[Rfam]
This 470-nucleotide sequence from Certhia brachydactyla belongs to the Rfam family "Vertebrate telomerase RNA". Its Rfam clan is "Telomerase clan". Rfam describes the family as follows. Telomerase is a ribonucleoprotein reverse transcriptase that synthesises telomeric DNA. Telomerase RNAs differ greatly in sequence and structure between vertebrates, ciliates and yeasts, but they share a 5' pseudoknot structure close to the template sequence. Vertebrate telomerase RNAs have a 3' H/ACA snoRNA-like domain. A reference for the family is Chen et al. (2000), "Secondary structure of vertebrate telomerase RNA", Cell.

RNA sequence: UGUGCCGGGGUGGGCAAGCCCUACGGUUAACUAACCCUAAUGGCUGCCGCGCUCCUUUCGGUCGCCCGCUGUUUUACUCGCUGACUUUCAGCGGGCAAAGGGAGCGGCCCGGGGAAAGGUGGGAGGGAGCGGCCCGGUGAAAGGGAGGCGGAAGGAGUUCCGCCGUCAAAAAAAGCCAGCGAUGGGGCUCCACACCCCGGCCCACCCUGGGAUCCCUGUGCCUUCUCCGUGACCGGGGGUGCUCCCGCCUUCGCCCCUCAUGGAGGCCGCGGUCGGUGGGCUCAGUGCCACUACCGCCGCGAAGAGUUCGUCUCUGUCAGCCUUGGUGGAGGCGGGGAGCAGAGGGCCGGCCCGCCCCCCGGCCAGCCGAGGGACCCCAGCAGAACAAAACAGGGGCGACGCCGUGGGGCGCUCAUCAGCCGCGGCUCCCUGAGACAUGGAGUGCGUGGCCGGCGACUGCCCCGACAAAA
Numbered sequence: 001u002g003u004g005c006c007g008g009g010g011u012g013g014g015c016a017a018g019c020c021c022u023a024c025g026g027u028u029a030a031c032u033a034a035c036c037c038u039a040a041u042g043g044c045u046g047c048c049g050c051g052c053u054c055c056u057u058u059c060g061g062u063c064g065c066c067c068g069c070u071g072u073u074u075u076a077c078u079c080g081c082u083g084a085c086u087u088u089c090a091g092c093g094g095g096c097a098a099a100g101g102g103a104g105c106g107g108c109c110c111g112g113g114g115a116a117a118g119g120u121g122g123g124a125g126g127g128a129g130c131g132g133c134c135c136g137g138u139g140a141a142a143g144g145g146a147g148g149c150g151g152a153a154g155g156a157g158u159u160c161c162g163c164c165g166u167c168a169a170a171a172a173a174a175g176c177c178a179g180c181g182a183u184g185g186g187g188c189u190c191c192a193c194a195c196c197c198c199g200g201c202c203c204a205c206c207c208u209g210g211g212a213u214c215c216c217u218g219u220g221c222c223u224u225c226u227c228c229g230u231g232a233c234c235g236g237g238g239g240u241g242c243u244c245c246c247g248c249c250u251u252c253g254c255c256c257c258u259c260a261u262g263g264a265g266g267c268c269g270c271g272g273u274c275g276g277u278g279g280g281c282u283c284a285g286u287g288c289c290a291c292u293a294c295c296g297c298c299g300c301g302a303a304g305a306g307u308u309c310g311u312c313u314c315u316g317u318c319a320g321c322c323u324u325g326g327u328g329g330a331g332g333c334g335g336g337g338a339g340c341a342g343a344g345g346g347c348c349g350g351c352c353c354g355c356c357c358c359c360c361g362g363c364c365a366g367c368c369g370a371g372g373g374a375c376c377c378c379a380g381c382a383g384a385a386c387a388a389a390a391c392a393g394g395g396g397c398g399a400c401g402c403c404g405u406g407g408g409g410c411g412c413u414c415a416u417c418a419g420c421c422g423c424g425g426c427u428c429c430c431u432g433a434g435a436c437a438u439g440g441a442g443u444g445c446g447u448g449g450c451c452g453g454c455g456a457c458u459g460c461c462c463c464g465a466c467a468a469a470a
Stems, first nucleotide, its partner, number of pairs: 005200007012191001016189001018188005051105005064096008080180004085175001086173003207380005213374001244336007252328004268301005274296004279289003303315004394462004398457001400455004420449005427442001429440002